[Rfam]
RNA sequence: CUCGCUCUAACGGGGUGCCUGGCGUUUUCGCCGGGCUGAGAGGCCAGAUGGCCAACCCGAAGAACCUGAUCCGGUUUGUACCGGCGGAGGGAUUAGACGUGCACAUCGC
Numbered sequence: 001c002u003c004g005c006u007c008u009a010a011c012g013g014g015g016u017g018c019c020u021g022g023c024g025u026u027u028u029c030g031c032c033g034g035g036c037u038g039a040g041a042g043g044c045c046a047g048a049u050g051g052c053c054a055a056c057c058c059g060a061a062g063a064a065c066c067u068g069a070u071c072c073g074g075u076u077u078g079u080a081c082c083g084g085c086g087g088a089g090g091g092a093u094u095a096g097a098c099g100u101g102c103a104c105a106u107c108g109c
Stems, first nucleotide, its partner, number of pairs: 006097005011059004017036007043052003065090003071084004
Dot-bracket structure: .....(((((((((..(((((((......)))))))......(((....)))...)))).....(((...((((......))))...)))..)))))............

A member of the RNA family "TPP riboswitch aptamer (THI element)", 109 nucleotides long. A search with the family's covariance model found it, with a score of 71 bits. Gene Ontology term of the family: thiamine pyrophosphate binding.